[Rfam]
RNA sequence: AGGUCAUUUCAAAGAGAGCUUAUGGGACCAAAACCCGGAGUUCCUAAUGCUGUGAGACUUAAAGGUGAAGUUCUCCAUCGGAUAAAAUAGACACUUAGCAGUGCUAUGUUUUCUCGAGGAGAUAUAAGA
Numbered sequence: 001a002g003g004u005c006a007u008u009u010c011a012a013a014g015a016g017a018g019c020u021u022a023u024g025g026g027a028c029c030a031a032a033a034c035c036c037g038g039a040g041u042u043c044c045u046a047a048u049g050c051u052g053u054g055a056g057a058c059u060u061a062a063a064g065g066u067g068a069a070g071u072u073c074u075c076c077a078u079c080g081g082a083u084a085a086a087a088u089a090g091a092c093a094c095u096u097a098g099c100a101g102u103g104c105u106a107u108g109u110u111u112u113c114u115c116g117a118g119g120a121g122a123u124a125u126a127a128g129a
Base pairs, nucleotide, nucleotide: 002059003058004057005054006053007052014045016043017042018041019040020039021038023037026035072122073121074120075119076118080114081113082112087107088106089105090104092103093102094101095100
A member of the RNA family "Small nucleolar RNA SNORA25" from Phyllostomus discolor, 129 nucleotides long. Rfam's curators write: ACA25 is a member of the H/ACA class of snoRNA that guide the sites of modification of uridines to pseudouridines. Rfam classes the family as an H/ACA-box small nucleolar RNA. It scores 93 bits against the family's covariance model.